Shown here is a 576-nucleotide part of an RNA from Treponema pallidum, a member of the family "Bacterial large subunit ribosomal RNA". The family is grouped with related families in Rfam's "LSU clan". The organism belongs to Treponema pallidum subsp. pallidum, within Bacteria.
RNA sequence: GAAUAGUGGUUUACGGUGGAUGUCUUGGAGUUGUCAGGCGAUGAAGGUCGUGAUAAGCUGCGAAAAGCCUCGGGGAGGAGCACAUGUCCUGUGAUCCGGGGAUGACCGAAUGGGGUAACCCGACAGGGUAAAGCCUUGUCAUUGCCUUCCUGAAUGAAUAGGGAGGGUAAGGCGAAACUGGGUGAACUGAACCAUCUAAGUAACUUGGGAAAAGAAAUCAAGAGAGAUUCCGAAAGUAGUGGCGAGCGAAAUUGGAGGAGCCUAAACCUGUGUCUAACAGGGGUUGUAGGGCCGCGCGGGCUUGCGUUCGGUGGGUGAAAUAAUCCGGCCUAUAGCAGAAAGGUUUUGGGAAAGCCUGACAGAGAGGGUGAAAUCCCCGUAUGCGGAAUGGGGCGGACCUGCUGGUGCGGUACCUGAGUACGGCGGGACACGAGGAAUCCUGUCGGAAUCUGGGUCGACCACGAUCUAAGGCUAAAUACUCGACAACUACCGAUAGUGGACAAGUACCGUGAGGGAAAGAUGAAAAGAACCCCGGUGAGGGGAGUGAAAUAGAACCUGAAACCGUAAACCAACAAG
Numbered sequence: 001g002a003a004u005a006g007u008g009g010u011u012u013a014c015g016g017u018g019g020a021u022g023u024c025u026u027g028g029a030g031u032u033g034u035c036a037g038g039c040g041a042u043g044a045a046g047g048u049c050g051u052g053a054u055a056a057g058c059u060g061c062g063a064a065a066a067g068c069c070u071c072g073g074g075g076a077g078g079a080g081c082a083c084a085u086g087u088c089c090u091g092u093g094a095u096c097c098g099g100g101g102a103u104g105a106c107c108g109a110a111u112g113g114g115g116u117a118a119c120c121c122g123a124c125a126g127g128g129u130a131a132a133g134c135c136u137u138g139u140c141a142u143u144g145c146c147u148u149c150c151u152g153a154a155u156g157a158a159u160a161g162g163g164a165g166g167g168u169a170a171g172g173c174g175a176a177a178c179u180g181g182g183u184g185a186a187c188u189g190a191a192c193c194a195u196c197u198a199a200g201u202a203a204c205u206u207g208g209g210a211a212a213a214g215a216a217a218u219c220a221a222g223a224g225a226g227a228u229u230c231c232g233a234a235a236g237u238a239g240u241g242g243c244g245a246g247c248g249a250a251a252u253u254g255g256a257g258g259a260g261c262c263u264a265a266a267c268c269u270g271u272g273u274c275u276a277a278c279a280g281g282g283g284u285u286g287u288a289g290g291g292c293c294g295c296g297c298g299g300g301c302u303u304g305c306g307u308u309c310g311g312u313g314g315g316u317g318a319a320a321u322a323a324u325c326c327g328g329c330c331u332a333u334a335g336c337a338g339a340a341a342g343g344u345u346u347u348g349g350g351a352a353a354g355c356c357u358g359a360c361a362g363a364g365a366g367g368g369u370g371a372a373a374u375c376c377c378c379g380u381a382u383g384c385g386g387a388a389u390g391g392g393g394c395g396g397a398c399c400u401g402c403u404g405g406u407g408c409g410g411u412a413c414c415u416g417a418g419u420a421c422g423g424c425g426g427g428a429c430a431c432g433a434g435g436a437a438u439c440c441u442g443u444c445g446g447a448a449u450c451u452g453g454g455u456c457g458a459c460c461a462c463g464a465u466c467u468a469a470g471g472c473u474a475a476a477u478a479c480u481c482g483a484c485a486a487c488u489a490c491c492g493a494u495a496g497u498g499g500a501c502a503a504g505u506a507c508c509g510u511g512a513g514g515g516a517a518a519g520a521u522g523a524a525a526a527g528a529a530c531c532c533c534g535g536u537g538a539g540g541g542g543a544g545u546g547a548a549a550u551a552g553a554a555c556c557u558g559a560a561a562c563c564g565u566a567a568a569c570c571a572a573c574a575a576g
Base pairs, nucleotide, nucleotide: 007571008570009569010568011567012566013565014564015563016562022556023520024519027491028490029488030487031486032485033484034483035482036480037479038173039172046107047106048105049062050061051060068101069100070099071098072097073096074095077089078088079087112121113120114119122140123139124138125137126136127135128134142170143169144168145167146166148164149163150162151161178208179207180206181205182204183203189196190195218225219224228476229256230255231254232253233252239247240246259473260472261471262470267281268280269279270278271277288415289414290413293409294408295407296406297405324397325396326395327394329392330391331390332389333388335384336383337382341357342356343355344354346353360364366378367377368376421445422444423443424442425441426440427439428438452467453466454465455464456463507514508513530542531541532540533539